The family of this 128-nucleotide RNA sequence from Phycicoccus avicenniae is "FMN riboswitch aptamer (RFN element)". The organism belongs to Phycicoccus, within Bacteria. Pairs were carried over by alignment from the consensus structure, which is taken from published work.
RNA sequence: CACGUGUUCCGGGGUCGGUGAAACUCCGAGCCGGCGGUGACAGUCCGCGACCCGACCGCAGCCAGCGGCCGGUUGACCAGGUGGAACUCCUGGACCGACGGUGAAAGUCCGGAUGGUAGGCACACGUG
Numbered sequence: 001c002a003c004g005u006g007u008u009c010c011g012g013g014g015u016c017g018g019u020g021a022a023a024c025u026c027c028g029a030g031c032c033g034g035c036g037g038u039g040a041c042a043g044u045c046c047g048c049g050a051c052c053c054g055a056c057c058g059c060a061g062c063c064a065g066c067g068g069c070c071g072g073u074u075g076a077c078c079a080g081g082u083g084g085a086a087c088u089c090c091u092g093g094a095c096c097g098a099c100g101g102u103g104a105a106a107g108u109c110c111g112g113a114u115g116g117u118a119g120g121c122a123c124a125c126g127u128g
Stems, first nucleotide, its partner, number of pairs: 003126005009120002016028003030108002032097002034048004043095002052072002077093005099111003